[Rfam]
RNA sequence: GGGGGAUUGGUGUAUCGGUAACACGGCGGUCUCCAAAACCGCAACGCGAGGUUCGAUUCCUCGAUCCCCCG
Numbered sequence: 001g002g003g004g005g006a007u008u009g010g011u012g013u014a015u016c017g018g019u020a021a022c023a024c025g026g027c028g029g030u031c032u033c034c035a036a037a038a039c040c041g042c043a044a045c046g047c048g049a050g051g052u053u054c055g056a057u058u059c060c061u062c063g064a065u066c067c068c069c070c071g
Stems, first nucleotide, its partner, number of pairs: 001070007010024004026042005047063005